This 32-nucleotide RNA sequence from Flavobacterium sp. F52 belongs to the Rfam family "DUF805b RNA". By type it is a cis-regulatory element. The family is grouped with related families in Rfam's "DUF805 clan".
RNA sequence: AAGGAGAAACCGAAAAUCCUUAAGAGUAGGGA
Numbered sequence: 001a002a003g004g005a006g007a008a009a010c011c012g013a014a015a016a017u018c019c020u021u022a023a024g025a026g027u028a029g030g031g032a
Base pairs, nucleotide, nucleotide: 002020003019004018005017010030011029